[Rfam]
U2 spliceosomal RNA: a 190-nucleotide sequence from Terrapene triunguis. The match comes from Rfam's covariance-model search (112 bits).

RNA sequence: CUUGAUUUUAAACAUUAGCUUUAAUACAAUAUUUAAAUCUGUUCUUAUCAGUUUAAUAUCUGAUACAUCUUCUAUUUGAGGACUAUAUAUUAAAUGGAUUUUUGGAACAGGGAGAUGGAAUAGGAGCUUGCUCUAUCCACUCCACGCAUUGGCCUGGUAGUGCAGUACCUACAGGAACGGUGCAUCUCCC
Number, nucleotide and partner (000 for none) at each position: 001c000002u000003u000004g000005a000006u000007u024008u023009u000010a021011a020012a000013c018014a000015u000016u000017a000018g013019c000020u011021u010022u000023a008024a007025u000026a000027c000028a000029a000030u000031a000032u000033u000034u000035a000036a000037a000038u000039c000040u000041g000042u000043u000044c000045u000046u065047a064048u063049c062050a061051g060052u000053u000054u000055a000056a000057u000058a000059u000060c051061u050062g049063a048064u047065a046066c000067a000068u082069c081070u080071u079072c078073u000074a000075u000076u000077u000078g072079a071080g070081g069082a068083c000084u000085a000086u000087a000088u000089a000090u000091u000092a000093a000094a000095u000096g000097g000098a000099u000100u000101u000102u000103u000104g000105g000106a000107a000108c000109a000110g000111g143112g142113a141114g140115a000116u000117g137118g136119a000120a000121u000122a000123g134124g133125a132126g131127c000128u000129u000130g000131c126132u125133c124134u123135a000136u118137c117138c000139a000140c114141u113142c112143c111144a000145c000146g183147c182148a181149u180150u179151g178152g000153c175154c174155u173156g172157g000158u000159a000160g000161u000162g000163c000164a000165g000166u000167a000168c000169c000170u000171a000172c156173a155174g154175g153176a000177a000178c151179g150180g149181u148182g147183c146184a000185u000186c000187u000188c000189c000190c000

The family's consensus secondary structure is taken from published work.
The literature on the family includes a 1997 paper in Nucleic Acids Res by Zwieb, "The uRNA database".
NCBI's taxonomy places the organism under Eukaryota, Chordata, Dipnotetrapodomorpha, Testudinoidea, Terrapene.